[Rfam]
RNA sequence: UUUAAAGUAUAAGUAUGUCCCAUGUAAUGUUUGGGAUAGACUUACACUAAAA
Number, nucleotide and partner (000 for none) at each position: 001u000002u000003u000004a000005a000006a048007g047008u046009a000010u044011a043012a042013g000014u040015a000016u038017g000018u036019c035020c034021c033022a031023u000024g000025u000026a000027a000028u000029g000030u000031u022032u000033g021034g020035g019036a018037u000038a016039g000040a014041c000042u012043u011044a010045c000046a008047c007048u006049a000050a000051a000052a000